[Rfam]
RNA: L2-Alphaproteobacteria ribosomal protein leader
RNA sequence: GCGGACCUACGGGGCCGCAUAACCUUUCAAACCCCACAUGGGUUUGAAGCUAAAACGGAAGACAGAAA
Numbered sequence: 001g002c003g004g005a006c007c008u009a010c011g012g013g014g015c016c017g018c019a020u021a022a023c024c025u026u027u028c029a030a031a032c033c034c035c036a037c038a039u040g041g042g043u044u045u046g047a048a049g050c051u052a053a054a055a056c057g058g059a060a061g062a063c064a065g066a067a068a
Base pairs, nucleotide, nucleotide: 001018002017003016004015006014007013008012026048027047028046029045030044033042034041